This 172-nucleotide sequence from Pediococcus acidilactici belongs to the Rfam family "M-box riboswitch aptamer (ykoK leader)".
Pairs were carried over by alignment from the consensus structure.
The source organism's lineage runs through Bacteria, Bacillota, Lactobacillales, Lactobacillaceae and Pediococcus acidilactici.
Gene Ontology terms of the family: response to magnesium ion and regulation of gene expression.
M-box riboswitch, also know as ykoK leader is described as a metaloregulatory RNA that sense divalent metals and function as a genetic control element of genes related to divalent metal transport in bacteria. It was first reported upstream of the B.subtilis ykoK gene and genes with related functions in other bacteria.
On this family, see Barrick et al., Proc Natl Acad Sci U S A 2004: "New RNA motifs suggest an expanded scope for riboswitches in bacterial genetic control".
A search with the family's covariance model found it, with a score of 154 bits.
RNA sequence: GAAUACAUUUGUUAGGUGAGGCUCCUAUACAAACAUAGGCUGCUGCCCAAAAAUGUCGAGAGACACUAAUGGGUAGAACAGGAAUUGUCGAAUUCAAGGCUUUUCUUAAGGUAGCUAAAAUUGGAAAAUUUUUACGUUGUAUAGUGCUAAAGCUCAACGAAUAGAUCAGCGU
Number, nucleotide and partner (000 for none) at each position: 001g000002a000003a000004u000005a000006c000007a166008u165009u164010u163011g158012u157013u097014a000015g154016g153017u152018g000019a000020g148021g147022c146023u000024c000025c144026u143027a142028u141029a140030c139031a138032a137033a000034c000035a000036u000037a000038g000039g115040c114041u113042g112043c111044u000045g074046c073047c072048c071049a070050a000051a000052a000053a000054u065055g064056u063057c062058g000059a000060g000061a000062g057063a056064c055065a054066c000067u000068a000069a000070u049071g048072g047073g046074u045075a000076g000077a000078a000079c000080a000081g106082g105083a104084a103085u000086u000087g100088u099089c098090g000091a000092a000093u000094u000095c000096a000097a013098g089099g088100c087101u000102u000103u084104u083105c082106u081107u000108a000109a000110g000111g043112u042113a041114g040115c039116u000117a132118a131119a130120a000121u000122u000123g000124g000125a000126a000127a000128a000129u000130u119131u118132u117133u000134a000135c000136g000137u032138u031139g030140u029141a028142u027143a026144g025145u000146g022147c021148u020149a000150a000151a000152g017153c016154u015155c000156a000157a012158c011159g000160a000161a000162u000163a010164g009165a008166u007167c000168a000169g000170c000171g000172u000